[Rfam]
RNA sequence: GGUUUAAAGGGUGCGUAGGUGGCCUGGUAAGUCCGUGGUGAAAGCCUCCUGCUCAACAGGAGAACUGCCAUGGAUACUGCCGGGCUUGAGUCCAGACGAGGUUGGCGGAAUAGAGGCUGUAGCGGUGAAAUGCAUAGAUAGCCUCUAGAACCCCGAUUGCGUAGGCAGCUGACUAGGCUGGUACUGACACUGAGGCACGAAAGCGUGGGGAGCGAACAGGAUUAGAUACCCUGGUAGUCCACGCCGUAAACGAUGGAUACUCGCUGGCAGCGAUACACUGUUGCUGGCUGAGCGAAAGCGUUAAGUAUCCCACCUGGGGAGUACGCUCGCAAGAGUGAAACUCAAAGGAAU
Dot-bracket structure: (((.....(.((((.(.(((.(((((((.(((((((((((.....((((((.....))))))...)))))))))..)))))))))...(((((((.(..((((((((...((((((((...(((......)))......))))))))...).......((....)).))))))).).)))).)))...))))..))))....((((((...((...((((.........))))...))))))))..........((((((..((((((((((......))))))))))...((....)).....)))))))))).(((......((((....))))....)))........
The family of this 351-nucleotide part of an RNA from Hymenobacter crusticola is "Bacterial small subunit ribosomal RNA". NCBI's taxonomy places the organism under Bacteria, Cytophagia, Cytophagales, Hymenobacteraceae, Hymenobacter. Its Rfam clan is "SSU clan". A search with the family's covariance model found it, with a score of 1538 bits. Pairs were carried over by alignment from the consensus structure, which is taken from published work.